[Rfam]
RNA sequence: AGCGAAAUGAGGAGGCGAAAUCAUCUGAAUUUAUACUGUGGAUAUUACCUACAUGGUCUUCAAAGUUCUCUGAUCGCU
Numbered sequence: 001a002g003c004g005a006a007a008u009g010a011g012g013a014g015g016c017g018a019a020a021u022c023a024u025c026u027g028a029a030u031u032u033a034u035a036c037u038g039u040g041g042a043u044a045u046u047a048c049c050u051a052c053a054u055g056g057u058c059u060u061c062a063a064a065g066u067u068c069u070c071u072g073a074u075c076g077c078u
Stems, first nucleotide, its partner, number of pairs: 001078005

Shown here is a 78-nucleotide sequence from Aegilops tauschii, a member of the family "Small nucleolar RNA R160". The literature on the family includes a 2003 paper in Nucleic Acids Res by Chen et al., "The high diversity of snoRNAs in plants: identification and comparative study of 120 snoRNA genes from Oryza sativa". The match comes from Rfam's covariance-model search (78 bits). The pairing is the family consensus, mapped onto this sequence. From the family's description: snoR160 is a C/D box small nucleolar RNA, which acts as a methylation guide for 25S ribosomal RNA in plants. snoR160 has been alternatively named snoZ270 in rice. Its family is annotated with RNA processing and nucleolus in the Gene Ontology.